[Rfam]
RNA sequence: AGUGUCAUGUGAUGAAAACUUAUUCUAUCUUAGGACACCUUCUGACACAGUGCUGAUUUCCUGUGGAUGAGAAGGCUUUUAUAUUCUGAUGAUACG
Number, nucleotide and partner (000 for none) at each position: 001a000002g095003u094004g093005u092006c091007a090008u000009g000010u000011g000012a000013u000014g000015a000016a000017a000018a000019c000020u000021u000022a000023u000024u000025c000026u000027a000028u000029c000030u000031u000032a000033g000034g000035a000036c000037a000038c000039c000040u000041u000042c000043u049044g048045a000046c000047a000048c044049a043050g000051u000052g000053c000054u000055g000056a000057u000058u000059u000060c000061c000062u000063g000064u000065g000066g000067a000068u000069g000070a000071g000072a000073a000074g000075g000076c000077u000078u000079u000080u000081a000082u000083a000084u000085u000086c000087u000088g000089a000090u007091g006092a005093u004094a003095c002096g000
Shown here is a 96-nucleotide RNA from Triticum aestivum, a member of the family "Small nucleolar RNA snoR31/Z110/Z27". A reference for the family is Barneche et al. (2001), "Identification of 66 box C/D snoRNAs in Arabidopsis thaliana: extensive gene duplications generated multiple isoforms predicting new ribosomal RNA 2'-O-methylation sites", J Mol Biol. This family contains several related snoRNAs including R31, Z27 and Z110. The organism belongs to Triticum, within Eukaryota.